This 102-nucleotide sequence from Azospirillum sp. TSO22-1 belongs to the Rfam family "rpsB sRNA". The source organism's lineage runs through Bacteria, Alphaproteobacteria, Rhodospirillales, Azospirillaceae and Azospirillum.
RNA sequence: CACACGCGGGCUGGCGGACCUUCGGCGCGAGCCGACGGCCCCCUCCGGUGUUCGCAUUUUGCGGACAGCGCCCGCGGCGGAACAACCGGAAAAGGUAGAUUU
Numbered sequence: 001c002a003c004a005c006g007c008g009g010g011c012u013g014g015c016g017g018a019c020c021u022u023c024g025g026c027g028c029g030a031g032c033c034g035a036c037g038g039c040c041c042c043c044u045c046c047g048g049u050g051u052u053c054g055c056a057u058u059u060u061g062c063g064g065a066c067a068g069c070g071c072c073c074g075c076g077g078c079g080g081a082a083c084a085a086c087c088g089g090a091a092a093a094g095g096u097a098g099a100u101u102u
Stems, first nucleotide, its partner, number of pairs: 001079001003077001005076007016043002025033001027032001052065002